The record is a 73-nucleotide sequence from Histidinibacterium aquaticum, which matches "L2-Alphaproteobacteria ribosomal protein leader" in Rfam.

[Rfam]
RNA sequence: GGGGACCUUCGGGGCCCUUCAUCUCGCCGGGGUCGCCUUGCGCGCACUCCGCAAAGCAACGGAAAGACAGUAA
Numbered sequence: 001g002g003g004g005a006c007c008u009u010c011g012g013g014g015c016c017c018u019u020c021a022u023c024u025c026g027c028c029g030g031g032g033u034c035g036c037c038u039u040g041c042g043c044g045c046a047c048u049c050c051g052c053a054a055a056g057c058a059a060c061g062g063a064a065a066g067a068c069a070g071u072a073a
Stems, first nucleotide, its partner, number of pairs: 001018004006014003029050005035045002

It scores 47 bits against the family's covariance model. Pairs were carried over by alignment from the consensus structure, which is taken from published work.